Annotation:
A member of the RNA family "c-di-GMP-I riboswitch aptamer" from Vibrio sp. MED222, 86 nucleotides long. Taxonomically the source falls in Vibrio (Bacteria, Pseudomonadati, Pseudomonadota, Gammaproteobacteria).

RNA sequence: UCACGCACAGGGCAAACCACUUGAAAAAGUGGGACGCAAAGCUUCCGGCCUAAACCACUCGUUGGUAUGGUAGCGGGGUUACCGAU
Numbered sequence: 001u002c003a004c005g006c007a008c009a010g011g012g013c014a015a016a017c018c019a020c021u022u023g024a025a026a027a028a029g030u031g032g033g034a035c036g037c038a039a040a041g042c043u044u045c046c047g048g049c050c051u052a053a054a055c056c057a058c059u060c061g062u063u064g065g066u067a068u069g070g071u072a073g074c075g076g077g078g079u080u081a082c083c084g085a086u
Base pairs, nucleotide, nucleotide: 012037013036017032018031019030020029021028022027040080041079042078043077045076046075047074048071049070050069055065056064057063
The base pairs follow the family's consensus structure, which is taken from published work. It is one of the family's seed sequences.